[Rfam]
Nucleotides: 127
Stems, first nucleotide, its partner, number of pairs: 002059005015046004019040006080127002085123001088121002095116002098113002102109001
Number, partner (000 for none) and nucleotide at each position: 001000u002059g003058g004057a005056g006055g007000a008000c009000u010000g011000a012000g013000a014000a015046g016045g017044u018043a019040a020039g021038a022037c023036a024035g025000a026000a027000a028000c029000u030000u031000g032000a033000u034000g035024c036023u037022g038021u039020u040019u041000c042000u043018u044017a045016c046015u047000g048000g049000u050000u051000a052000u053000a054000g055006c056005c057004u058003c059002c060000a061000a062000a063000a064000u065000u066000a067000u068000a069000a070000u071000a072000g073000u074000g075000c076000a077000a078000u079000g080127g081126c082000a083000g084000u085123u086000u087000u088121u089120g090000u091000u092000c093000c094000c095116c096115u097000c098113c099112u100000g101000c102109c103000a104000u105000g106000a107000g108000g109102g110000a111000a112099a113098g114000c115096a116095g117000g118000a119000c120089u121088g122000c123085a124000u125000u126081g127080c
Shown here is a 127-nucleotide sequence from Buceros rhinoceros, a member of the family "Small nucleolar RNA SNORA47". A search with the family's covariance model found it, with a score of 72 bits. By type it is an H/ACA-box small nucleolar RNA.